[Rfam]
RNA: Plastid-rpl16 group II-D1 intron
RNA sequence: AAGAGCUUCGAGUCAAUAAAUAUUGAGUACAUUGACUCAUAAACAAA
Numbered sequence: 001a002a003g004a005g006c007u008u009c010g011a012g013u014c015a016a017u018a019a020a021u022a023u024u025g026a027g028u029a030c031a032u033u034g035a036c037u038c039a040u041a042a043a044c045a046a047a
Stems, first nucleotide, its partner, number of pairs: 007041001010038008